The family of this 84-nucleotide sequence from secondary endosymbiont of Ctenarytaina eucalypti is "RpsF leader".
About the family: Conserved and widely distributed to many bacterial species RNA structure. It precedes operon containing rpsF, which encodes ribosomal protein S6. The motif also precedes operon containing rpsR, which encodes ribosomal protein S18. The RNA was shown to interact with S6:S18 protein dimer in vitro. It was shown that RpsF leader regulates gene expression in response to the S6:S18 complex, contributing to the regulation of ribosomal protein levels.
[Rfam]
RNA sequence: GCAAAACUCAUCAUGUUCCUUGCUUCUAUGGGCUUCACUUGAUCCUAAAAAGAGGCUGCAUAAUCCAUAAGGAGCUUUUUUAUG
Numbered sequence: 001g002c003a004a005a006a007c008u009c010a011u012c013a014u015g016u017u018c019c020u021u022g023c024u025u026c027u028a029u030g031g032g033c034u035u036c037a038c039u040u041g042a043u044c045c046u047a048a049a050a051a052g053a054g055g056c057u058g059c060a061u062a063a064u065c066c067a068u069a070a071g072g073a074g075c076u077u078u079u080u081u082a083u084g
Stems, first nucleotide, its partner, number of pairs: 015075007022056006030045003
The base pairs follow the family's consensus structure. Lineage of the source: Bacteria > Enterobacterales > Enterobacteriaceae > ant, tsetse, mealybug, aphid, etc. endosymbionts > aphid secondary symbionts.